Notes:
Shown here is a 127-nucleotide sequence from Plasmodium yoelii, a member of the family "small nucleolar RNA snoR15". Its family is annotated with nucleolus and RNA processing in the Gene Ontology. NCBI's taxonomy places the organism under Eukaryota, Alveolata, Apicomplexa, Haemosporida, Plasmodium yoelii. The family's consensus secondary structure is taken from published work. Rfam classes the family as a C/D-box small nucleolar RNA.

[Rfam]
RNA sequence: AUGAUAUAGAAAUAAAAAAAGAGCGAAAGCCUUAACGCAAUAUUACUCCUAUUCAUUUUGUUUAGAGGGUAAUAUAUAUGUAAAGGUUUAUGAGCGUUAAAAGUGAGUAGUUUUCAAUCUGAUAAAA
Number, nucleotide and partner (000 for none) at each position: 001a123002u000003g000004a000005u000006a000007u000008a000009g119010a000011a000012a000013u000014a000015a000016a000017a000018a000019a000020a000021g000022a000023g095024c094025g000026a000027a088028a087029g000030c086031c085032u000033u000034a000035a000036c000037g000038c000039a000040a000041u074042a073043u072044u071045a070046c000047u068048c067049c065050u064051a063052u000053u000054c060055a059056u000057u000058u000059u055060g054061u000062u000063u051064a050065g049066a000067g048068g047069g000070u045071a044072a043073u042074a041075u000076a000077u000078a000079u000080g000081u000082a000083a000084a000085g031086g030087u028088u027089u000090a000091u000092g000093a000094g024095c023096g000097u000098u000099a000100a000101a000102a000103g000104u000105g000106a000107g000108u000109a000110g000111u000112u000113u000114u000115c000116a000117a000118u000119c009120u000121g000122a000123u001124a000125a000126a000127a000